This 89-nucleotide sequence from Firmicutes bacterium CAG:124 belongs to the Rfam family "Glycine riboswitch aptamer". Pairs were carried over by alignment from the consensus structure. The source organism's lineage runs through Bacteria, Bacillati and Bacillota.
RNA sequence: GAAGGAAUCUCUGGAGAACUCAUUGAAUUGAGUGCCGAAGGUGCAAGGCGCAAGCCGAAUCUCUCAGGCAAAAGGACAGAGCCGCAGCU
Numbered sequence: 001g002a003a004g005g006a007a008u009c010u011c012u013g014g015a016g017a018a019c020u021c022a023u024u025g026a027a028u029u030g031a032g033u034g035c036c037g038a039a040g041g042u043g044c045a046a047g048g049c050g051c052a053a054g055c056c057g058a059a060u061c062u063c064u065c066a067g068g069c070a071a072a073a074g075g076a077c078a079g080a081g082c083c084g085c086a087g088c089u
Stems, first nucleotide, its partner, number of pairs: 009081005019032004034069003037065002041063001043061001047056002